This 82-nucleotide sequence from Vombatus ursinus belongs to the Rfam family "mir-194 microRNA precursor family".
[Rfam]
RNA sequence: UGGCGCUCACUCCCUGUAACAGCAACUCCAUGUGGGAUGGCUUCCUAUUCCCAGUGGGGAUGCUGUUACCUUGGGUGGGCAG
Numbered sequence: 001u002g003g004c005g006c007u008c009a010c011u012c013c014c015u016g017u018a019a020c021a022g023c024a025a026c027u028c029c030a031u032g033u034g035g036g037a038u039g040g041c042u043u044c045c046u047a048u049u050c051c052c053a054g055u056g057g058g059g060a061u062g063c064u065g066u067u068a069c070c071u072u073g074g075g076u077g078g079g080c081a082g
Base pairs, nucleotide, nucleotide: 010075011074012073016069017068018067019066020065021064022063023062026059027058028057029056030055031054033053034052035051
For this family Rfam cites "New microRNAs from mouse and human" (Lagos-Quintana et al., RNA, 2003).
The source organism's lineage runs through Eukaryota, Chordata, Mammalia, Metatheria and Vombatus.
Rfam links the family to the GO terms miRNA-mediated post-transcriptional gene silencing and RISC complex.